[Rfam]
RNA sequence: GGGUGAGGUAGAGGUGCGAUUUCUAAGAGUAUCUAUAUGGAAGCCGGAAGCUAGUGAAGUAUAGAGAAAGGAGGCAUCGCCGAAGCUUCAGAUACCAAAAUCUGUUGCUGGGUCUGCAGUUAAGAGCUGCAGGACUGUCAUCAUAGUAUUUGCUCGAUAUUAUGAUGUUGUGCUAUCUCACAU
Numbered sequence: 001g002g003g004u005g006a007g008g009u010a011g012a013g014g015u016g017c018g019a020u021u022u023c024u025a026a027g028a029g030u031a032u033c034u035a036u037a038u039g040g041a042a043g044c045c046g047g048a049a050g051c052u053a054g055u056g057a058a059g060u061a062u063a064g065a066g067a068a069a070g071g072a073g074g075c076a077u078c079g080c081c082g083a084a085g086c087u088u089c090a091g092a093u094a095c096c097a098a099a100a101u102c103u104g105u106u107g108c109u110g111g112g113u114c115u116g117c118a119g120u121u122a123a124g125a126g127c128u129g130c131a132g133g134a135c136u137g138u139c140a141u142c143a144u145a146g147u148a149u150u151u152g153c154u155c156g157a158u159a160u161u162a163u164g165a166u167g168u169u170g171u172g173c174u175a176u177c178u179c180a181c182a183u
Base pairs, nucleotide, nucleotide: 006178007177008176009175010174011173016080017079018078019077020076022074023073024072032065033064034063035062036061037060038059084109085108086107089104090103091102092101093100110136111135113133114132115131116130117129118128119127120126139167140166141165142164143163144162145161146160147159148158